[Rfam]
This 90-nucleotide sequence from Thermovirga lienii belongs to the Rfam family "c-di-GMP-I riboswitch aptamer".
RNA sequence: AGCUGACAAGGGCAAAGCAGGCGAAAGCCUGCGGCGCAAAGCCCAGGGUCUAAGGCGCACAUUUCGCGCUAUGACAGCCUGGCUGCCGGC
Number, nucleotide and partner (000 for none) at each position: 001a000002g000003c000004u000005g000006a000007c000008a000009a000010g000011g000012g037013c036014a000015a000016a000017g032018c031019a030020g029021g028022c027023g000024a000025a000026a000027g022028c021029c020030u019031g018032c017033g000034g000035c000036g013037c012038a000039a000040a084041g083042c082043c081044c000045a080046g079047g078048g075049u074050c073051u000052a000053a000054g000055g069056c068057g067058c066059a000060c000061a000062u000063u000064u000065c000066g058067c057068g056069c055070u000071a000072u000073g050074a049075c048076a000077g000078c047079c046080u045081g043082g042083c041084u040085g000086c000087c000088g000089g000090c000
Lineage of the source: Bacteria > Synergistota > Synergistia > Thermovirga > Thermovirga lienii.
The base pairs follow the family's consensus structure, which is taken from published work.